Description:
mir-156 microRNA precursor family: an 81-nucleotide sequence from Papaver somniferum.
RNA sequence: GUGACAGAAGAGAGCGAGCACACAUGGUUUUCUUGCAUGAAUGAUGCUUGAAACACUGCGUGCUUACUCUCUAUCUGUCAC
Numbered sequence: 001g002u003g004a005c006a007g008a009a010g011a012g013a014g015c016g017a018g019c020a021c022a023c024a025u026g027g028u029u030u031u032c033u034u035g036c037a038u039g040a041a042u043g044a045u046g047c048u049u050g051a052a053a054c055a056c057u058g059c060g061u062g063c064u065u066a067c068u069c070u071c072u073a074u075c076u077g078u079c080a081c
Stems, first nucleotide, its partner, number of pairs: 001081008010071005016065006023058002
Dot-bracket structure: ((((((((.(((((.((((((.((................................)).)))))).)))))..))))))))
Rfam describes the family as follows. This family represents the plant microRNA (miRNA) precursor mir-156. Lineage of the source: Eukaryota > Streptophytina > Magnoliopsida > Papaveraceae > Papaver. The literature on the family includes a 2002 paper in Genes Dev by Reinhart et al., "MicroRNAs in plants".